[Rfam]
RNA sequence: GUGGGCAUCUUACUAGACAGUGCUGGAUUUUUGGAUGUAUUCUAACACUGUCUGGUAACGAUGUUUAA
Numbered sequence: 001g002u003g004g005g006c007a008u009c010u011u012a013c014u015a016g017a018c019a020g021u022g023c024u025g026g027a028u029u030u031u032u033g034g035a036u037g038u039a040u041u042c043u044a045a046c047a048c049u050g051u052c053u054g055g056u057a058a059c060g061a062u063g064u065u066u067a068a
Base pairs, nucleotide, nucleotide: 002067003066004065005064006063007062008061009060010058011057012056013055014054015053016052017051018050019049020048021047022046024044025043026042027041

A member of the RNA family "mir-8/mir-141/mir-200 microRNA precursor family" from Sarcophilus harrisii, 68 nucleotides long. The family is grouped with related families in Rfam's "mir-8 microRNA precursor clan". The family's consensus secondary structure was predicted with RNAalifold.